[Rfam]
RNA sequence: GCGGCGGGCCGCUACUGGCGCGGGUGGGUUACCACCGGGGAACGGCCGUACCACCGUCGAUGCCGACCGCCUGGGCCUGCGAC
Numbered sequence: 001g002c003g004g005c006g007g008g009c010c011g012c013u014a015c016u017g018g019c020g021c022g023g024g025u026g027g028g029u030u031a032c033c034a035c036c037g038g039g040g041a042a043c044g045g046c047c048g049u050a051c052c053a054c055c056g057u058c059g060a061u062g063c064c065g066a067c068c069g070c071c072u073g074g075g076c077c078u079g080c081g082a083c
Stems, first nucleotide, its partner, number of pairs: 003051001007047005015039002017071004024035004060078001062076003
ZMP/ZTP riboswitch aptamer (pfl RNA motif): an 83-nucleotide RNA from Parafrankia colletiae.
A search with the family's covariance model found it, with a score of 46 bits.
NCBI's taxonomy places the organism under Bacteria, Bacillati, Frankiales, Frankiaceae, Parafrankia.